Annotation: Class I RNA from Dictyostelium: a 58-nucleotide sequence from Dictyostelium discoideum. Lineage of the source: Eukaryota > Dictyosteliales > Dictyosteliaceae > Dictyostelium > Dictyostelium discoideum. A reference for the family is Sucgang et al. (2011), "Comparative genomics of the social amoebae Dictyostelium discoideum and Dictyostelium purpureum", Genome Biol. The family's RNA type in Rfam is non-coding RNA gene. Rfam describes the family as follows. Dictyostelium Class I RNA was first reported for Aspegren et al. 2004 in Dictyostelium discoideum. Sucgang et al. 2011 identify putative homologs of Class I RNA in D. discoideum and D. purpureum.
RNA sequence: GCUCGCCUUACAGCAAUUACUCUGAAUUUUUCUCCAAAAAAAAACCCUUCGCGAGUUG
Numbered sequence: 001g002c003u004c005g006c007c008u009u010a011c012a013g014c015a016a017u018u019a020c021u022c023u024g025a026a027u028u029u030u031u032c033u034c035c036a037a038a039a040a041a042a043a044a045c046c047c048u049u050c051g052c053g054a055g056u057u058g
Stems, first nucleotide, its partner, number of pairs: 001056006